RNA sequence: UGGUCCAUGAUGGCUAGACCACUGCUCAGUCUGAGCUCUGGAAACCAGGUGAUGGAGUGUUCUGAAAACGGACUGAGACUG
Numbered sequence: 001u002g003g004u005c006c007a008u009g010a011u012g013g014c015u016a017g018a019c020c021a022c023u024g025c026u027c028a029g030u031c032u033g034a035g036c037u038c039u040g041g042a043a044a045c046c047a048g049g050u051g052a053u054g055g056a057g058u059g060u061u062c063u064g065a066a067a068a069c070g071g072a073c074u075g076a077g078a079c080u081g
Stems, first nucleotide, its partner, number of pairs: 002080004038048004